[Rfam]
Shown here is a 103-nucleotide RNA from Helianthus annuus, a member of the family "MIR390 microRNA precursor family".
The base pairs follow the family's consensus structure, which was predicted with WAR.
Its family is annotated with miRNA-mediated post-transcriptional gene silencing and RISC complex in the Gene Ontology.
The source organism's lineage runs through Eukaryota, Mesangiospermae, asterids, Asterales and Helianthus.
Nucleotides: 103
Base pairs, nucleotide, nucleotide: 010094016088017087018086019085020084021083022082023081024080026078027077028076029075030074031073032072033071034070035069
Number, partner (000 for none) and nucleotide at each position: 001000g002000a003000a004000a005000a006000a007000a008000a009000u010094c011000g012000g013000u014000g015000a016088a017087g018086c019085u020084c021083a022082g023081g024080a025000g026078g027077g028076a029075u030074a031073g032072c033071g034070u035069c036000a037000a038000a039000u040000u041000c042000c043000a044000c045000g046000u047000g048000u049000u050000a051000u052000g053000a054000u055000c056000a057000c058000a059000g060000u061000u062000u063000g064000u065000u066000u067000u068000a069035g070034a071033c072032g073031c074030u075029a076028u077027c078026c079000a080024u081023c082022c083021u084020g085019a086018g087017c088016u089000c090000c091000a092000u093000g094010g095000a096000u097000u098000u099000u100000u101000c102000a103000u